[Rfam]
RNA sequence: CACCCGGCCGGAUCCCGUGGGGGGAGUCCGCGCCGGGAAAUGGGGAAGCGCCCCGCGCUCCGAC
Numbered sequence: 001c002a003c004c005c006g007g008c009c010g011g012a013u014c015c016c017g018u019g020g021g022g023g024g025a026g027u028c029c030g031c032g033c034c035g036g037g038a039a040a041u042g043g044g045g046a047a048g049c050g051c052c053c054c055g056c057g058c059u060c061c062g063a064c
Base pairs, nucleotide, nucleotide: 001062003037004036005035006034007033009030010029011028012027013026014024015023016022042053043052044051

This 64-nucleotide RNA from Streptomyces piniterrae belongs to the Rfam family "Streptomyces RNA 2736". Identified by deep sequencing of transcriptome at the end of exponential growth phase. Appears smaller on northern blot than sequencing transcript. Pairs were carried over by alignment from the consensus structure. A reference for the family is Vockenhuber et al. (2011), "Deep sequencing-based identification of small non-coding RNAs in Streptomyces coelicolor", RNA Biol.